RNA sequence: AAGGAAGAUAGAGGUGCGGUUUUAAAGAGUAGCACGCGGGAGGGGGCCAAAACCCGGGAACGCCUGCGAAAGGGAAAACCGCCGAAGGAGAACGGCGUUUGGCCGGCGUUCUUCUGGGGGCAGCAGUGAAAAACGCUGCAACUGUCAUCAUAAGAUUUAUGGUGGAGCGCUAUCGGCAGU
Numbered sequence: 001a002a003g004g005a006a007g008a009u010a011g012a013g014g015u016g017c018g019g020u021u022u023u024a025a026a027g028a029g030u031a032g033c034a035c036g037c038g039g040g041a042g043g044g045g046g047c048c049a050a051a052a053c054c055c056g057g058g059a060a061c062g063c064c065u066g067c068g069a070a071a072g073g074g075a076a077a078a079c080c081g082c083c084g085a086a087g088g089a090g091a092a093c094g095g096c097g098u099u100u101g102g103c104c105g106g107c108g109u110u111c112u113u114c115u116g117g118g119g120g121c122a123g124c125a126g127u128g129a130a131a132a133a134c135g136c137u138g139c140a141a142c143u144g145u146c147a148u149c150a151u152a153a154g155a156u157u158u159a160u161g162g163u164g165g166a167g168c169g170c171u172a173u174c175g176g177c178a179g180u
Base pairs, nucleotide, nucleotide: 007174008173009172010171011170016082017081018080019079020078021077022076023075032067033066034065036063037062038061086115087114088113089112090111091110092109093108094107096105097104116143117142120139121138122137123136124135145165146164147163148162149161150160151159
This 180-nucleotide RNA sequence from Anaeromassilibacillus sp. An250 belongs to the Rfam family "Lysine riboswitch aptamer". The match comes from Rfam's covariance-model search (116 bits). The base pairs follow the family's consensus structure, which is taken from published work. NCBI's taxonomy places the organism under Bacteria, Bacillati, Clostridia, Eubacteriales, Anaeromassilibacillus. On this family, see Sudarsan et al., Genes Dev 2003: "An mRNA structure in bacteria that controls gene expression by binding lysine".